Rfam assigns this 136-nucleotide RNA from Motilimonas pumila to the family "Molybdenum/Tungsten riboswitch aptamer (Moco RNA motif)".
RNA sequence: GAAAUAAAUGAACUCCGAGUUUAACUCGCCUAAGUCGAAGAUAUGGCGAUUAAACCGUGUCGGAAUUAUCCGCAAAGGGUGUGGUGAGAAAUUGUCAUGCCUCCCGAAUUUGGAAAGGUGUUUAUGCCACAACUUA
Numbered sequence: 001g002a003a004a005u006a007a008a009u010g011a012a013c014u015c016c017g018a019g020u021u022u023a024a025c026u027c028g029c030c031u032a033a034g035u036c037g038a039a040g041a042u043a044u045g046g047c048g049a050u051u052a053a054a055c056c057g058u059g060u061c062g063g064a065a066u067u068a069u070c071c072g073c074a075a076a077g078g079g080u081g082u083g084g085u086g087a088g089a090a091a092u093u094g095u096c097a098u099g100c101c102u103c104c105c106g107a108a109u110u111u112g113g114a115a116a117g118g119u120g121u122u123u124a125u126g127c128c129a130c131a132a133c134u135u136a
Stems, first nucleotide, its partner, number of pairs: 011122003015118002019055006026049005034042003059073002062070002077102011103113002
Dot-bracket structure: ..........(((.((..((((((.(((((...(((...)))..)))))))))))...((.((.....)).))...(((((((((((....)))))))))))((.......))...)).)))..............
Lineage of the source: Bacteria > Pseudomonadota > Gammaproteobacteria > Alteromonadales > Motilimonas. The family has 160 seed sequences and 1,248 matches in Rfam 15.1. It scores 83 bits against the family's covariance model.